Source information: This 138-nucleotide RNA sequence from Microcebus murinus belongs to the Rfam family "Small nucleolar RNA SNORA75". Rfam 15.1 lists 414 matches to the family in 310 species. Pairs were carried over by alignment from the consensus structure, which was predicted with PFOLD. On this family, see Ganot et al., Genes Dev 1997: "The family of box ACA small nucleolar RNAs is defined by an evolutionarily conserved secondary structure and ubiquitous sequence elements essential for RNA accumulation". The match comes from Rfam's covariance-model search (110 bits).
RNA sequence: GUCUUCUCAUUGAGCUCCGUUCUGUCUCUUGGUGGCAGUUUAUGGAUUCGCACGAGAAGAAGAAGAAUUCACAGAACUUAGCAUUAUUUUACCUUCUUUUUUUUAUGGAGGUAUAUUUGGCUGUUUUGUGAGACAUUC
Numbered sequence: 001g002u003c004u005u006c007u008c009a010u011u012g013a014g015c016u017c018c019g020u021u022c023u024g025u026c027u028c029u030u031g032g033u034g035g036c037a038g039u040u041u042a043u044g045g046a047u048u049c050g051c052a053c054g055a056g057a058a059g060a061a062g063a064a065g066a067a068u069u070c071a072c073a074g075a076a077c078u079u080a081g082c083a084u085u086a087u088u089u090u091a092c093c094u095u096c097u098u099u100u101u102u103u104u105a106u107g108g109a110g111g112u113a114u115a116u117u118u119g120g121c122u123g124u125u126u127u128g129u130g131a132g133a134c135a136u137u138c
Stems, first nucleotide, its partner, number of pairs: 003059006014051002016046003022038005069131006093110004098105001